RNA sequence: AUCAAAGUGAUCUAGGGUUCCGAUACAGUUCGAUGAAGAACGUAUGUCUGAGACCGAGAGUUCACGGCUUAGUUUUGAACAAAAGCAGAGCUACACGGAGGGAUAAAAGCCCGGGAGGU
Numbered sequence: 001a002u003c004a005a006a007g008u009g010a011u012c013u014a015g016g017g018u019u020c021c022g023a024u025a026c027a028g029u030u031c032g033a034u035g036a037a038g039a040a041c042g043u044a045u046g047u048c049u050g051a052g053a054c055c056g057a058g059a060g061u062u063c064a065c066g067g068c069u070u071a072g073u074u075u076u077g078a079a080c081a082a083a084a085g086c087a088g089a090g091c092u093a094c095a096c097g098g099a100g101g102g103a104u105a106a107a108a109g110c111c112c113g114g115g116a117g118g119u
Stems, first nucleotide, its partner, number of pairs: 007065004012060001015055002020052001021050001022048001023045004066092005072086004094114001096117001100112003
Shown here is a 119-nucleotide sequence from Acinetobacter defluvii, a member of the family "Guanidine-I riboswitch aptamer". For this family Rfam cites "New RNA motifs suggest an expanded scope for riboswitches in bacterial genetic control" (Barrick et al., Proc Natl Acad Sci U S A, 2004).